[Rfam]
Rfam assigns this 156-nucleotide sequence to the family "DUF2800 RNA". It is one of the family's seed sequences. It is annotated as a cis-regulatory element. The family's consensus secondary structure is taken from published work.
RNA sequence: CCGCUUGAUACCGCACCAAUUGAUCACUGGUGGCUCAACGGAGUCAAGCGGACAAGUGAACAUCGUAGCUGCCUAUUGAGCGGGUGUGCUGCAUUCCGAAACGGAGAAAUUCGUUUGGACUGCGGUUGGUUUCGCAUACCCAUAUGCAGCUUUCAG
Numbered sequence: 001c002c003g004c005u006u007g008a009u010a011c012c013g014c015a016c017c018a019a020u021u022g023a024u025c026a027c028u029g030g031u032g033g034c035u036c037a038a039c040g041g042a043g044u045c046a047a048g049c050g051g052a053c054a055a056g057u058g059a060a061c062a063u064c065g066u067a068g069c070u071g072c073c074u075a076u077u078g079a080g081c082g083g084g085u086g087u088g089c090u091g092c093a094u095u096c097c098g099a100a101a102c103g104g105a106g107a108a109a110u111u112c113g114u115u116u117g118g119a120c121u122g123c124g125g126u127u128g129g130u131u132u133c134g135c136a137u138a139c140c141c142a143u144a145u146g147c148a149g150c151u152u153u154c155a156g
Stems, first nucleotide, its partner, number of pairs: 001051005007045003011041003014032005033081006067151006088126005101114005
Dot-bracket structure: (((((.(((.((((((((.........)))))[[[[[[))).))).)))))...............((((((...]]]]]]......(((((........(((((....))))).......)))))...................)))))).....